[Rfam]
RNA: TPP riboswitch aptamer (THI element)
Nucleotides: 105
Base pairs, nucleotide, nucleotide: 006093007092008091009090012054013053014052016049017041018040019039020038021037061086062085063084064083067080068079069078070077
Number, partner (000 for none) and nucleotide at each position: 001000u002000a003000c004000g005000g006093a007092a008091a009090a010000a011000a012054g013053g014052g015000g016049u017041g018040c019039c020038u021037c022000a023000c024000g025000a026000g027000g028000c029000g030000u031000u032000g033000c034000c035000c036000g037021g038020a039019g040018g041017c042000u043000g044000a045000g046000a047000u048000u049016a050000c051000a052014c053013c054012c055000g056000u057000c058000g059000a060000a061086c062085c063084u064083g065000a066000u067080a068079c069078g070077g071000u072000c073000a074000g075000u076000a077070c078069c079068g080067u081000c082000g083064u084063a085062g086061g087000g088000a089000c090009u091008u092007u093006u094000c095000g096000a097000g098000u099000g100000c101000u102000u103000u104000g105000c